[Rfam]
RNA sequence: GUCGAACAGGACACCGCCGCGACGUCGUCGAUCAAGGUUCGAUCGGUGUGGUGGCCGACCGAGGCGAUCACCGGCACCGGCAGCAG
Numbered sequence: 001g002u003c004g005a006a007c008a009g010g011a012c013a014c015c016g017c018c019g020c021g022a023c024g025u026c027g028u029c030g031a032u033c034a035a036g037g038u039u040c041g042a043u044c045g046g047u048g049u050g051g052u053g054g055c056c057g058a059c060c061g062a063g064g065c066g067a068u069c070a071c072c073g074g075c076a077c078c079g080g081c082a083g084c085a086g
Stems, first nucleotide, its partner, number of pairs: 011049005052070003056066002

The family of this 86-nucleotide sequence is "Actino-ugpB RNA". It is one of the family's seed sequences. Rfam classes the family as a small RNA.